Small nucleolar RNA SNORA15: a 136-nucleotide RNA from Motacilla alba. The family has 22 seed sequences and 974 matches in Rfam 15.1. On this family, see Huttenhofer et al., EMBO J 2001: "RNomics: an experimental approach that identifies 201 candidates for novel, small, non-messenger RNAs in mouse". ACA15 is a member of the H/ACA class of snoRNA that guide the sites of modification of uridines to pseudouridines. It scores 78 bits against the family's covariance model. Rfam classes the family as an H/ACA-box small nucleolar RNA.

[Rfam]
RNA sequence: GCAUGGAUGAAUUCUGCCCUAGCUUUCCUCAGUAGCUGGUGCAGUCAGACACCAUGCCAGAGCAAAUUCCUUUUUUCCACUGUGCCUGGCGUGCUUUUGAUGGGAAUGAGCAUGCCCUUGGAAGGGGAGCACAUGG
Number, nucleotide and partner (000 for none) at each position: 001g057002c056003a055004u054005g053006g052007a000008u000009g000010a000011a000012u000013u000014c044015u043016g042017c041018c000019c039020u000021a000022g000023c000024u000025u000026u000027c000028c000029u000030c000031a000032g000033u000034a000035g000036c000037u000038g000039g019040u000041g017042c016043a015044g014045u000046c000047a000048g000049a000050c000051a000052c006053c005054a004055u003056g002057c001058c000059a000060g000061a000062g000063c000064a000065a000066a000067u000068u000069c000070c129071u128072u127073u125074u124075u123076u122077c121078c120079a119080c000081u000082g000083u000084g000085c000086c000087u000088g116089g115090c114091g113092u112093g111094c110095u109096u108097u000098u000099g000100a000101u000102g000103g000104g000105a000106a000107u000108g096109a095110g094111c093112a092113u091114g090115c089116c088117c000118u000119u079120g078121g077122a076123a075124g074125g073126g000127g072128a071129g070130c000131a000132c000133a000134u000135g000136g000